[Rfam]
RNA sequence: CUCUUAUCAAGAGUAGGUUGAGGGACUAGCCCGAUGACACCCGGCAACCGACAUCCCGCUUUAAGCAGGAUGCACGGUGCUAAUUCUUGCAGGAGCGUUUACGCUUCCUGACAGAUGAGAG
Numbered sequence: 001c002u003c004u005u006a007u008c009a010a011g012a013g014u015a016g017g018u019u020g021a022g023g024g025a026c027u028a029g030c031c032c033g034a035u036g037a038c039a040c041c042c043g044g045c046a047a048c049c050g051a052c053a054u055c056c057c058g059c060u061u062u063a064a065g066c067a068g069g070a071u072g073c074a075c076g077g078u079g080c081u082a083a084u085u086c087u088u089g090c091a092g093g094a095g096c097g098u099u100u101a102c103g104c105u106u107c108c109u110g111a112c113a114g115a116u117g118a119g120a121g
Stems, first nucleotide, its partner, number of pairs: 001121008013042001016041003022032003026089001028087002043081004048077002050073001085113001090110006

Overview:
Shown here is a 121-nucleotide sequence from Paenibacillus contaminans, a member of the family "SAM riboswitch aptamer (S box leader)". The base pairs follow the family's consensus structure, which is taken from published work. The match comes from Rfam's covariance-model search (75 bits). NCBI's taxonomy places the organism under Bacteria, Bacillati, Caryophanales, Paenibacillaceae, Paenibacillus.